[Rfam]
RNA sequence: GUCCUCGCCAAAGCUGCGUUUCUUUGCUACAUCCGCCAGUUCACGCUGGAGUUACACUUGCAAAUGAGAAAUUCGGAGUAUUCUUCAACCUUUCAACCAGCUUCUGCACGCCUAUAGUGAGGAAGCUCGGUACUGCCCGUGAGGGCCUGGCAUGAAAAGUGUCUGCAAUUAGGCAUCAGAAACAUCGGGGGAAGGGUGCGGAUGGGGGGCCUGAGAGAAAUCCUGGGUCUCGCUUCUGCGUUCCUCACCCCCUUGGGAGAGCCGUUGCGAAGAUUGUGUGUGUCUUUCCUUCGGGGAGAUGCGACACCUAAGUGCAAUACGCAGCGUAUCAUGGCUCCCUCCGUUGAGAGGAGAGACCAGGUAUCAUUCGAUUCCGAUUACUCUGGCGAGGAC
Numbered sequence: 001g002u003c004c005u006c007g008c009c010a011a012a013g014c015u016g017c018g019u020u021u022c023u024u025u026g027c028u029a030c031a032u033c034c035g036c037c038a039g040u041u042c043a044c045g046c047u048g049g050a051g052u053u054a055c056a057c058u059u060g061c062a063a064a065u066g067a068g069a070a071a072u073u074c075g076g077a078g079u080a081u082u083c084u085u086c087a088a089c090c091u092u093u094c095a096a097c098c099a100g101c102u103u104c105u106g107c108a109c110g111c112c113u114a115u116a117g118u119g120a121g122g123a124a125g126c127u128c129g130g131u132a133c134u135g136c137c138c139g140u141g142a143g144g145g146c147c148u149g150g151c152a153u154g155a156a157a158a159g160u161g162u163c164u165g166c167a168a169u170u171a172g173g174c175a176u177c178a179g180a181a182a183c184a185u186c187g188g189g190g191g192a193a194g195g196g197u198g199c200g201g202a203u204g205g206g207g208g209g210c211c212u213g214a215g216a217g218a219a220a221u222c223c224u225g226g227g228u229c230u231c232g233c234u235u236c237u238g239c240g241u242u243c244c245u246c247a248c249c250c251c252c253u254u255g256g257g258a259g260a261g262c263c264g265u266u267g268c269g270a271a272g273a274u275u276g277u278g279u280g281u282g283u284c285u286u287u288c289c290u291u292c293g294g295g296g297a298g299a300u301g302c303g304a305c306a307c308c309u310a311a312g313u314g315c316a317a318u319a320c321g322c323a324g325c326g327u328a329u330c331a332u333g334g335c336u337c338c339c340u341c342c343g344u345u346g347a348g349a350g351g352a353g354a355g356a357c358c359a360g361g362u363a364u365c366a367u368u369c370g371a372u373u374c375c376g377a378u379u380a381c382u383c384u385g386g387c388g389a390g391g392a393c
Stems, first nucleotide, its partner, number of pairs: 001393004009386001011384001015324001020319001023064004036049005074376005083272004135146004149163005165268004172263003189252003326364005
RNA: Nuclear RNase P
Organism: Trichophyton rubrum